[Rfam]
RNA: Histone 3' UTR stem-loop
RNA sequence: AAAACGGUUCUUUUCAGAACCACAAAUUUUUUCAUAAAAAAAAGA
Numbered sequence: 001a002a003a004a005c006g007g008u009u010c011u012u013u014u015c016a017g018a019a020c021c022a023c024a025a026a027u028u029u030u031u032u033c034a035u036a037a038a039a040a041a042a043a044g045a
Stems, first nucleotide, its partner, number of pairs: 006021006